Rfam assigns this 170-nucleotide sequence from Asparagus officinalis to the family "MIR408 microRNA precursor family".
The organism belongs to Asparagus, within Eukaryota.
[Rfam]
RNA sequence: GAGAGAAGAAGAAGCAAGACGGGGAUGAGGCGGAGCAUGAGAGGGGUCAAUAACAAAUAACAAAUACAGGAAGGCGAAGGCGAAGCCGGCAUUGAAGAUAUUGGCAUUGAGAGUUGUUGUUGCCCUUUUCAUGCACUGCCUCUUCCCUGGCUUCCAUCACCCUUUCGCCU
Numbered sequence: 001g002a003g004a005g006a007a008g009a010a011g012a013a014g015c016a017a018g019a020c021g022g023g024g025a026u027g028a029g030g031c032g033g034a035g036c037a038u039g040a041g042a043g044g045g046g047u048c049a050a051u052a053a054c055a056a057a058u059a060a061c062a063a064a065u066a067c068a069g070g071a072a073g074g075c076g077a078a079g080g081c082g083a084a085g086c087c088g089g090c091a092u093u094g095a096a097g098a099u100a101u102u103g104g105c106a107u108u109g110a111g112a113g114u115u116g117u118u119g120u121u122g123c124c125c126u127u128u129u130c131a132u133g134c135a136c137u138g139c140c141u142c143u144u145c146c147c148u149g150g151c152u153u154c155c156a157u158c159a160c161c162c163u164u165u166c167g168c169c170u
Base pairs, nucleotide, nucleotide: 016153017152018151020149021148022147023146024145025144028141029140030139031138032137033136035134036133037132038131039130040129044125045124046123047122

The family has 8 seed sequences and 299 matches in Rfam 15.1. A reference for the family is Sunkar and Zhu (2004), "Novel and stress-regulated microRNAs and other small RNAs from Arabidopsis", Plant Cell.